[Rfam]
RNA: Glycine riboswitch aptamer
Organism: Sphingomonas sp. Leaf198
RNA sequence: UCGACACUCUGGAAAGCGUCCUGACGUGAGUCGAGGGCCACCGAAGGGGUAAGCGCUGGACAUAUCCCGCGCGAAAGCUCUCAGGUCCCGUGACAGAGGGGGUUCG
Numbered sequence: 001u002c003g004a005c006a007c008u009c010u011g012g013a014a015a016g017c018g019u020c021c022u023g024a025c026g027u028g029a030g031u032c033g034a035g036g037g038c039c040a041c042c043g044a045a046g047g048g049g050u051a052a053g054c055g056c057u058g059g060a061c062a063u064a065u066c067c068c069g070c071g072c073g074a075a076a077g078c079u080c081u082c083a084g085g086u087c088c089c090g091u092g093a094c095a096g097a098g099g100g101g102g103u104u105c106g
Base pairs, nucleotide, nucleotide: 005100007098008097009096010095011094018038019037020036021035040086041085042084043082044081047080048079049078054073055072
Dot-bracket structure: ....(.(((((......((((.............)))).(((((..(((....((................))....))))).))).......))))).)......